[Rfam]
Nucleotides: 081
Base pairs, nucleotide, nucleotide: 002080003079004078005077007075008074011071012070014068015067016066017065018064019063020062022060024058025057027055029053030052031051032050
Number, partner (000 for none) and nucleotide at each position: 001000c002080u003079g004078c005077a006000a007075c008074c009000c010000a011071g012070u013000g014068c015067a016066a017065g018064u019063a020062a021000c022060c023000a024058a025057g026000a027055a028000c029053a030052g031051g032050c033000c034000a035000a036000c037000c038000c039000u040000a041000g042000u043000c044000c045000a046000c047000a048000a049000a050032g051031c052030c053029u054000a055027u056000c057025c058024u059000g060022g061000a062020u063019u064018a065017c066016u067015u068014g069000a070012a071011c072000c073000a074008g075007g076000u077005u078004g079003c080002a081000g